[Rfam]
RNA sequence: GUGCCGAAGACCAAACCAGGUAAUGCAUCAGGACGCGGGGGCGGUACCCGCCGCCUCCACCAAAUCCAGCGUUGGCAUCAGAUAGUCGGGUAAUCGACAAUGACCUGAUGCAGCAUAUGGGGCGGGCUCCGGCCCAUUGCCAUGAACGCAGGAUUUGAUGGGGGCGAAACAGGAUCGACUGGGCAUGAAUGGAUGCGAGAGGCGCCGGCAAGGAACGGCCGACAAUUAGUCCAAACCCAAAAAAUGCCAACGACAACGUUGACAUGGGUCGCGCCCUCGUGGCGUGA
Dot-bracket structure: (((((.........((........((..(((...(((((.......)))))(((((((.....................................................................................................)))))))............))).)).......).)......)))))((((........))))..................................................................
RNA: permuted transfer-messenger RNA
Organism: Camelimonas fluminis